[Rfam]
RNA sequence: AAUAAAAAAAACCUGCAGAUAUUUAUCUGCAGGUCCCUUCGUUGCUUUCAACAUAGAAAACAAAAAGGCAAAGGGAGAGGAGAAACCGGAGGAAGAACUUAUGGGGAAGUGUAAGUCUUCUCCGUGU
Number, nucleotide and partner (000 for none) at each position: 001a000002a000003u000004a000005a000006a000007a000008a000009a000010a000011a034012c033013c032014u031015g030016c029017a028018g027019a026020u000021a000022u000023u000024u000025a000026u019027c018028u017029g016030c015031a014032g013033g012034u011035c075036c074037c073038u072039u071040c000041g000042u000043u000044g061045c000046u059047u058048u057049c056050a000051a000052c000053a000054u000055a000056g049057a048058a047059a046060a000061c044062a000063a000064a000065a000066a000067g000068g000069c000070a000071a039072a038073g037074g036075g035076a000077g000078a000079g000080g000081a000082g000083a000084a000085a000086c000087c124088g123089g122090a121091g000092g120093a119094a118095g117096a000097a116098c115099u114100u113101a112102u000103g000104g000105g000106g000107a000108a000109g000110u000111g000112u101113a100114a099115g098116u097117c095118u094119u093120c092121u090122c089123c088124g087125u000126g000127u000